[Rfam]
RNA sequence: GCGUUCCCUACUGGAGAGAGGCCCCCUCGAGGCGGCCCACCGAAGGAGCAAACCUGCAUCGCCAGGCGAAUCUCUCAGGUAAAGAGGACAGCAGGGGCAGC
Numbered sequence: 001g002c003g004u005u006c007c008c009u010a011c012u013g014g015a016g017a018g019a020g021g022c023c024c025c026c027u028c029g030a031g032g033c034g035g036c037c038c039a040c041c042g043a044a045g046g047a048g049c050a051a052a053c054c055u056g057c058a059u060c061g062c063c064a065g066g067c068g069a070a071u072c073u074c075u076c077a078g079g080u081a082a083a084g085a086g087g088a089c090a091g092c093a094g095g096g097g098c099a100g101c
Stems, first nucleotide, its partner, number of pairs: 006096004011091003020037004039080003042076002046074003053066004

This 101-nucleotide RNA sequence from Polaromonas sp. A23 belongs to the Rfam family "Glycine riboswitch aptamer". This family represents the bacterial glycine riboswitch. Its family is annotated with glycine biosynthetic process in the Gene Ontology.